Nuclear RNase P: a 325-nucleotide sequence from Allacma fusca. A reference for the family is Frank and Pace (1998), "Ribonuclease P: unity and diversity in a tRNA processing ribozyme", Annu Rev Biochem.
[Rfam]
RNA sequence: CCAGUCUCACGCUUGCAAAAAAGGAGUCAGGCCACACACUUGUGUGAUUAACUCCUGGGAAGGUCUGAGUCAAGGGUCGACAGCACUCUAGCGGAGUGUCCUUCUAAUUGAGGAAUAGGGAAUAAGAAAUGGACAAGUGUGUCUUCUUUUGUUUGAUUUCCAUGCCGGGGAAGCAGAUCAAGCUUUUGGCUUGUGAUGUGGAUGGCGAUGAGAUCAGAUGAAAUUGGGAAUACUCUAUGACUAGCUAUGUAAGUUUAAUUUGCAAGGUGGUCACUGUCCCUUUGGGAUUGUGCCCAUAACUCAAUUCAGACUAUGUUGAGACUGG
Numbered sequence: 001c002c003a004g005u006c007u008c009a010c011g012c013u014u015g016c017a018a019a020a021a022a023g024g025a026g027u028c029a030g031g032c033c034a035c036a037c038a039c040u041u042g043u044g045u046g047a048u049u050a051a052c053u054c055c056u057g058g059g060a061a062g063g064u065c066u067g068a069g070u071c072a073a074g075g076g077u078c079g080a081c082a083g084c085a086c087u088c089u090a091g092c093g094g095a096g097u098g099u100c101c102u103u104c105u106a107a108u109u110g111a112g113g114a115a116u117a118g119g120g121a122a123u124a125a126g127a128a129a130u131g132g133a134c135a136a137g138u139g140u141g142u143c144u145u146c147u148u149u150u151g152u153u154u155g156a157u158u159u160c161c162a163u164g165c166c167g168g169g170g171a172a173g174c175a176g177a178u179c180a181a182g183c184u185u186u187u188g189g190c191u192u193g194u195g196a197u198g199u200g201g202a203u204g205g206c207g208a209u210g211a212g213a214u215c216a217g218a219u220g221a222a223a224u225u226g227g228g229a230a231u232a233c234u235c236u237a238u239g240a241c242u243a244g245c246u247a248u249g250u251a252a253g254u255u256u257a258a259u260u261u262g263c264a265a266g267g268u269g270g271u272c273a274c275u276g277u278c279c280c281u282u283u284g285g286g287a288u289u290g291u292g293c294c295c296a297u298a299a300c301u302c303a304a305u306u307c308a309g310a311c312u313a314u315g316u317u318g319a320g321a322c323u324g325g
Base pairs, nucleotide, nucleotide: 001325002324003323004322007319008318009317012266013265014264015263016262017261018260022056023055024054025053026052033046034045035044036043037042065309066308067307068306069305075242076241077240078239084098085097086096087095088094099114100113101112102111103110115238116237117236118235119234120233142223144221267297268296269295270294272292273291